This 153-nucleotide sequence from Arachis hypogaea belongs to the Rfam family "Small nucleolar RNA snoR2/U65". The family's consensus secondary structure was predicted with WAR. Gene Ontology terms of the family: RNA processing and nucleolus. NCBI's taxonomy places the organism under Eukaryota, Tracheophyta, Magnoliopsida, eudicotyledons, Arachis.

[Rfam]
RNA sequence: GGUCCAAUGCCACGUUGCUGGUUGCUACAAGCUAUGACCAAUGAUGCUAUGAUUGGACCAAGAGCAAGAAUGUUCAUUUGUUUCACAUCUUGAUAGGAACCUGCGGAUCUUAUUACACUGUGAUCUGCGGAGCCGUUUUAUGUGAUUACAUUC
Numbered sequence: 001g002g003u004c005c006a007a008u009g010c011c012a013c014g015u016u017g018c019u020g021g022u023u024g025c026u027a028c029a030a031g032c033u034a035u036g037a038c039c040a041a042u043g044a045u046g047c048u049a050u051g052a053u054u055g056g057a058c059c060a061a062g063a064g065c066a067a068g069a070a071u072g073u074u075c076a077u078u079u080g081u082u083u084c085a086c087a088u089c090u091u092g093a094u095a096g097g098a099a100c101c102u103g104c105g106g107a108u109c110u111u112a113u114u115a116c117a118c119u120g121u122g123a124u125c126u127g128c129g130g131a132g133c134c135g136u137u138u139u140a141u142g143u144g145a146u147u148a149c150a151u152u153c
Stems, first nucleotide, its partner, number of pairs: 002058007009050001013046005020039003024032003083145005096134002101130003105126005